[Rfam]
RNA sequence: UGCAACAACUCCGAAGAGUGGGUGCCGGGAAACGGCACCCCGCCGAAGGAGCAAGCCACACGGGCCAGGAGGCCCUGCGGCGAAUCUCUCAGGCUCUGAACGGAGGGGGCAGU
Dot-bracket structure: .....(..(((((......((((((((.....)))))))).(((((..(((...((.......................))....))))).)))......)))))..).....
Numbered sequence: 001u002g003c004a005a006c007a008a009c010u011c012c013g014a015a016g017a018g019u020g021g022g023u024g025c026c027g028g029g030a031a032a033c034g035g036c037a038c039c040c041c042g043c044c045g046a047a048g049g050a051g052c053a054a055g056c057c058a059c060a061c062g063g064g065c066c067a068g069g070a071g072g073c074c075c076u077g078c079g080g081c082g083a084a085u086c087u088c089u090c091a092g093g094c095u096c097u098g099a100a101c102g103g104a105g106g107g108g109g110c111a112g113u
Stems, first nucleotide, its partner, number of pairs: 006108001009105005020040008042094003045090002049088003055081002

Shown here is a 113-nucleotide RNA sequence from Histidinibacterium aquaticum, a member of the family "Glycine riboswitch aptamer". Rfam links the family to the GO term glycine biosynthetic process. The source organism's lineage runs through Bacteria, Pseudomonadati, Pseudomonadota, Paracoccaceae and Histidinibacterium.